A member of the RNA family "Purine riboswitch aptamer" from Clostridium celatum, 98 nucleotides long. Rfam describes the family as follows. Riboswitches are metabolite binding domains within certain messenger RNAs that serve as precision sensors for their corresponding targets. Gene Ontology term of the family: purine nucleobase biosynthetic process. The match comes from Rfam's covariance-model search (73 bits).
RNA sequence: AACACGAAUAAUAAAAGAACUCAUAUAAGCCCGUAAUAUGGAUGGGUGUUUCUACCGAAAACCUUAAAUUUUCGUCUAUGAGUGAUGUUAAUAUAUGU
Numbered sequence: 001a002a003c004a005c006g007a008a009u010a011a012u013a014a015a016a017g018a019a020c021u022c023a024u025a026u027a028a029g030c031c032c033g034u035a036a037u038a039u040g041g042a043u044g045g046g047u048g049u050u051u052c053u054a055c056c057g058a059a060a061a062c063c064u065u066a067a068a069u070u071u072u073c074g075u076c077u078a079u080g081a082g083u084g085a086u087g088u089u090a091a092u093a094u095a096u097g098u
Stems, first nucleotide, its partner, number of pairs: 019083007029047006056074006